Shown here is an 85-nucleotide RNA from Pyrus ussuriensis x Pyrus communis, a member of the family "Small nucleolar RNA SNORD34". Clan: SNORD34 clan. About the family: snoRNA U34 is found in intron 5 of the ribosomal protein L13a gene in humans.
RNA sequence: AGAGGCCUAUGAUGAUCUAAAGAAUUGCCUACAUUGUCAGAUUAUUUCUCAUGAUAGAGUAACCUAAAUUAUUUCUGAGGCCUCG
Numbered sequence: 001a002g003a004g005g006c007c008u009a010u011g012a013u014g015a016u017c018u019a020a021a022g023a024a025u026u027g028c029c030u031a032c033a034u035u036g037u038c039a040g041a042u043u044a045u046u047u048c049u050c051a052u053g054a055u056a057g058a059g060u061a062a063c064c065u066a067a068a069u070u071a072u073u074u075c076u077g078a079g080g081c082c083u084c085g
Stems, first nucleotide, its partner, number of pairs: 002084001004082004
Taxonomically the source falls in Pyrus (Eukaryota, Streptophyta, Embryophyta, Rosales). Rfam classes the family as a C/D-box small nucleolar RNA. Gene Ontology terms of the family: RNA processing and nucleolus. A search with the family's covariance model found it, with a score of 42 bits.